[Rfam]
RNA: epsC RNA
Organism: Neobacillus massiliamazoniensis
RNA sequence: UGGUGAUGUCUCCUCUCCGUUAUCAAUGGAGGCACUCGGUCAUGCUGUGGGUUUAAGAGACCUUAGACGCAGGUCGUCAAGAGUGUGAUGUGAGGGCGGGUUAGAUGCCCA
Numbered sequence: 001u002g003g004u005g006a007u008g009u010c011u012c013c014u015c016u017c018c019g020u021u022a023u024c025a026a027u028g029g030a031g032g033c034a035c036u037c038g039g040u041c042a043u044g045c046u047g048u049g050g051g052u053u054u055a056a057g058a059g060a061c062c063u064u065a066g067a068c069g070c071a072g073g074u075c076g077u078c079a080a081g082a083g084u085g086u087g088a089u090g091u092g093a094g095g096g097c098g099g100g101u102u103a104g105a106u107g108c109c110c111a
Stems, first nucleotide, its partner, number of pairs: 001019003007034007035094004039089008049063006066078004098110004